[Rfam]
RNA sequence: GCAUACAAAUCCACCCCAAUCCACGUUGUUUGGGAGGGAUUGGGGUGGAAUUUAAACUAAAUUCUAUUCCAAUCCCUCCAAAACCACGUGGAUUGGGGUGUAUUUGUGU
Numbered sequence: 001g002c003a004u005a006c007a008a009a010u011c012c013a014c015c016c017c018a019a020u021c022c023a024c025g026u027u028g029u030u031u032g033g034g035a036g037g038g039a040u041u042g043g044g045g046u047g048g049a050a051u052u053u054a055a056a057c058u059a060a061a062u063u064c065u066a067u068u069c070c071a072a073u074c075c076c077u078c079c080a081a082a083a084c085c086a087c088g089u090g091g092a093u094u095g096g097g098g099u100g101u102a103u104u105u106g107u108g109u
Stems, first nucleotide, its partner, number of pairs: 004108007012100003016096011028084004035077009045067003
Shown here is a 109-nucleotide RNA from Miscanthus lutarioriparius, a member of the family "MIR5565 microRNA precursor family". The base pairs follow the family's consensus structure, which was predicted with RNAalifold.